[Rfam]
RNA sequence: CCGCGUCCAGGGGAUGGGGUGCCCCCUAAACCGCCGCAAAGGCUGAUGACUCCUGCUUGUUC
Number, nucleotide and partner (000 for none) at each position: 001c000002c000003g000004c000005g000006u000007c000008c000009a000010g025011g024012g023013g022014a000015u000016g053017g052018g051019g050020u049021g000022c013023c012024c011025c010026c000027u000028a000029a000030a000031c000032c000033g043034c042035c041036g000037c000038a000039a000040a000041g035042g034043c033044u000045g000046a000047u000048g000049a020050c019051u018052c017053c016054u000055g000056c000057u000058u000059g000060u000061u000062c000